[Rfam]
Nucleotides: 199
Stems, first nucleotide, its partner, number of pairs: 005194005011188011023176004031168005045154008055144003059140005065134002072127001074125004
Number, partner (000 for none) and nucleotide at each position: 001000u002000a003000g004000c005194u006193u007192u008191u009190u010000c011188g012187u013186a014185a015184g016183u017182c018181a019180a020179a021178c022000c023176u024175u025174u026173u027000a028000a029000a030000c031168u032167u033166u034165g035164a036000c037000c038000a039000a040000a041000u042000u043000u044000a045154u046153a047152g048151a049150a050149a051148a052147a053000u054000g055144u056143a057142u058000c059140a060139a061138c062137a063136u064000c065134u066133a067000g068000a069000a070000u071000g072127u073000c074125a075124a076123a077122u078000a079000a080000g081000u082000a083000c084000a085000c086000u087000a088000u089000g090000a091000a092000a093000a094000u095000a096000u097000a098000u099000a100000u101000c102000a103000u104000g105000a106000g107000g108000a109000u110000u111000u112000a113000a114000u115000a116000a117000a118000a119000c120000u121000a122077a123076u124075u125074u126000a127072g128000a129000g130000u131000c132000g133066u134065a135000a136063a137062u138061g139060u140059u141000g142057g143056u144055a145000g146000g147052u148051u149050u150049u151048u152047c153046u154045a155000u156000a157000a158000a159000u160000u161000u162000g163000g164035u165034c166033a167032a168031a169000g170000u171000u172000u173026a174025a175024g176023a177000a178021g179020u180019u181018u182017g183016a184015c185014u186013u187012a188011c189000a190009a191008a192007a193006a194005a195000a196000c197000u198000a199000g

Shown here is a 199-nucleotide RNA sequence from Brachypodium distachyon, a member of the family "MIR1435 microRNA precursor family". The match comes from Rfam's covariance-model search (104 bits). The organism belongs to Brachypodium, within Eukaryota. Its family is annotated with miRNA-mediated post-transcriptional gene silencing and RISC complex in the Gene Ontology. Rfam 15.1 lists 1,765 matches to the family in 31 species.